[Rfam]
RNA sequence: UCAGCCGGCCGGGCGGCCGCUCCCGACCAAUGCCGAAAGGCGGCGGGAGAGGAAAGUCCGGGCUCCACGGAGAAACGGUGCCGGAUAACGUCCGGCGGGGGAAACCCUAGGGACAGUGCCACAGAAAACAGACCGCCCCGCCUAUAGUGCGGCUCGACGGCGCGAAAAGGCGCCUCAAGACGAGCCGCAGUGUUGGCGGGGUAAGGGUGAAACGGUGGGGUAAGAGCCCACCGCGUCUCCGGUAACGGCGACGGCAGGGCAAACCCCACCGGGAGCAAAACCGAAUAGGGACGACGCGAUCGGCUUUGCGCGCAUGUGCGGGUGCGGUCAGCCUGUCUCCGGGCCAGUCGUCCGGGUUGGUUGCUCGAGGCGUCUCGCAAGAGCCGUCCCAGAGGAAUGGUCGCCCAGCGGCGCUUGGCGCUGCGGACAGAACCCGGCUUACAGGCCGGCUGACAUC
Numbered sequence: 001u002c003a004g005c006c007g008g009c010c011g012g013g014c015g016g017c018c019g020c021u022c023c024c025g026a027c028c029a030a031u032g033c034c035g036a037a038a039g040g041c042g043g044c045g046g047g048a049g050a051g052g053a054a055a056g057u058c059c060g061g062g063c064u065c066c067a068c069g070g071a072g073a074a075a076c077g078g079u080g081c082c083g084g085a086u087a088a089c090g091u092c093c094g095g096c097g098g099g100g101g102a103a104a105c106c107c108u109a110g111g112g113a114c115a116g117u118g119c120c121a122c123a124g125a126a127a128a129c130a131g132a133c134c135g136c137c138c139c140g141c142c143u144a145u146a147g148u149g150c151g152g153c154u155c156g157a158c159g160g161c162g163c164g165a166a167a168a169g170g171c172g173c174c175u176c177a178a179g180a181c182g183a184g185c186c187g188c189a190g191u192g193u194u195g196g197c198g199g200g201g202u203a204a205g206g207g208u209g210a211a212a213c214g215g216u217g218g219g220g221u222a223a224g225a226g227c228c229c230a231c232c233g234c235g236u237c238u239c240c241g242g243u244a245a246c247g248g249c250g251a252c253g254g255c256a257g258g259g260c261a262a263a264c265c266c267c268a269c270c271g272g273g274a275g276c277a278a279a280a281c282c283g284a285a286u287a288g289g290g291a292c293g294a295c296g297c298g299a300u301c302g303g304c305u306u307u308g309c310g311c312g313c314a315u316g317u318g319c320g321g322g323u324g325c326g327g328u329c330a331g332c333c334u335g336u337c338u339c340c341g342g343g344c345c346a347g348u349c350g351u352c353c354g355g356g357u358u359g360g361u362u363g364c365u366c367g368a369g370g371c372g373u374c375u376c377g378c379a380a381g382a383g384c385c386g387u388c389c390c391a392g393a394g395g396a397a398u399g400g401u402c403g404c405c406c407a408g409c410g411g412c413g414c415u416u417g418g419c420g421c422u423g424c425g426g427a428c429a430g431a432a433c434c435c436g437g438c439u440u441a442c443a444g445g446c447c448g449g450c451u452g453a454c455a456u457c
Stems, first nucleotide, its partner, number of pairs: 001453010011442001012405007020049006027042001054440003058437005063275004072338001074336001076271005081095005096110001097108004111266002116264002118260003133206002135202008214232006233255001234253004239248003279362004289353006331344004369388004374383003
The family of this 457-nucleotide RNA sequence from Fulvimarina manganoxydans is "Bacterial RNase P class A". About the family: Ribonuclease P (RNase P) is a ubiquitous endoribonuclease, found in archaea, bacteria and eukarya as well as chloroplasts and mitochondria. A search with the family's covariance model found it, with a score of 295 bits. Taxonomically the source falls in Fulvimarina (Bacteria, Pseudomonadati, Pseudomonadota, Hyphomicrobiales). The base pairs follow the family's consensus structure, which is taken from published work.